[Rfam]
Nucleotides: 181
Stems, first nucleotide, its partner, number of pairs: 006176006016079006023072002032064007083114012115142006122135004144166007
Number, partner (000 for none) and nucleotide at each position: 001000u002000u003000c004000u005000u006176a007175g008174g009173u010172a011171g012000a013000g014000g015000u016079g017078c018077g019076g020075u021074u022000a023072u024071u025000a026000a027000u028000a029000g030000u031000a032064a033063g034062u035061a036060u037059c038058u039000u040000g041000a042000g043000c044000u045000g046000g047000c048000c049000g050000g051000c052000g053000a054000g055000g056000a057000c058038a059037g060036a061035u062034a063033c064032u065000g066000a067000a068000a069000g070000g071024a072023a073000g074021g075020g076019c077018c078017g079016c080000c081000g082000a083114a084113g085112u086111g087110a088109a089108u090107g091106g092105c093104a094103g095000c096000a097000g098000g099000c100000c101000u102000g103094c104093u105092g106091u107090u108089g109088u110087u111086u112085g113084c114083u115142g116141g117140u118139u119138c120137u121000a122135u123134g124133c125132u126000g127000a128000a129000u130000u131000a132125a133124g134123c135122a136000c137120a138119g139118g140117a141116c142115u143000g144166u145165c146164a147163u148162c149161c150160g151000a152000a153000u154000g155000g156000g157000a158000u159000u160150c161149g162148g163147a164146u165145g166144g167000a168000g169000c170000g171011c172010u173009a174008u175007c176006u177000u178000g179000c180000a181000c
Record summary: Rfam assigns this 181-nucleotide sequence from Anaerospora hongkongensis to the family "Lysine riboswitch aptamer". NCBI's taxonomy places the organism under Bacteria, Bacillati, Negativicutes, Sporomusaceae, Anaerospora. Rfam describes the family as follows. Riboswitches are metabolite binding domains within certain messenger RNAs that serve as precision sensors for their corresponding targets. Allosteric rearrangement of mRNA structure is mediated by ligand binding, and this results in modulation of gene expression. This family includes riboswitches that sense lysine in a number of genes involved in lysine metabolism, including lysC. It scores 116 bits against the family's covariance model. Pairs were carried over by alignment from the consensus structure, which is taken from published work.